[Rfam]
RNA sequence: AAAAUACUUGAUUGGAGAGAUUAUAUAAAUUCAUGAUUGGAUGAAUGUUUCUACCAACUGCCGUAACAGUUGACUAUAAUGCUCAAUGGGAGUAGU
Numbered sequence: 001a002a003a004a005u006a007c008u009u010g011a012u013u014g015g016a017g018a019g020a021u022u023a024u025a026u027a028a029a030u031u032c033a034u035g036a037u038u039g040g041a042u043g044a045a046u047g048u049u050u051c052u053a054c055c056a057a058c059u060g061c062c063g064u065a066a067c068a069g070u071u072g073a074c075u076a077u078a079a080u081g082c083u084c085a086a087u088g089g090g091a092g093u094a095g096u
Base pairs, nucleotide, nucleotide: 020080021079022078023077024076025075029046030045031044032043033042034041055072056071057070058069059068060067
RNA: Purine riboswitch aptamer
Organism: Anaerofustis stercorihominis